Shown here is a 120-nucleotide RNA from Buttiauxella agrestis, a member of the family "CyaR/Rye RNA". The organism belongs to Buttiauxella agrestis, within Bacteria. About the family: This sRNA was originally identified in a large scale screen of E. coli. It was shown to bind Hfq and called RyeE. This sRNA has since been characterised as a post-transcriptional regulator of the 18 kDa OmpX porin in Salmonella. Phylogenetic and mutational analyses suggest that a conserved RNA hairpin of this sRNA which features a C-rich apical loop, acts to sequester the Shine-Dalgarno sequence of ompX mRNA and inhibits translational initiation. The expression of this sRNA has been shown to be tightly controlled by the cyclic AMP receptor protein, CRP and has been renamed CyaR (cyclic AMP-activated RNA). CyaR appears to be highly conserved amongst enterobacteria and the cyaR gene is frequently located downstream of the yegQ gene.

[Rfam]
RNA sequence: GGGCUGAAAAACAUAACCCAUAAAUGCUAGCUAUAUCCUGAUUAUUCAAUUUGAAGCAUCAUGAUAUAUACCAAGAACCACCUCAUUGGCCUGUGGAAUCUCCCUUCCGCAGGCCUUCUU
Numbered sequence: 001g002g003g004c005u006g007a008a009a010a011a012c013a014u015a016a017c018c019c020a021u022a023a024a025u026g027c028u029a030g031c032u033a034u035a036u037c038c039u040g041a042u043u044a045u046u047c048a049a050u051u052u053g054a055a056g057c058a059u060c061a062u063g064a065u066a067u068a069u070a071c072c073a074a075g076a077a078c079c080a081c082c083u084c085a086u087u088g089g090c091c092u093g094u095g096g097a098a099u100c101u102c103c104c105u106u107c108c109g110c111a112g113g114c115c116u117u118c119u120u
Base pairs, nucleotide, nucleotide: 039085040084041083088115089114090113091112092111093110094109095108096107097106098105

It scores 59 bits against the family's covariance model. A reference for the family is Wassarman et al. (2001), "Identification of novel small RNAs using comparative genomics and microarrays", Genes Dev.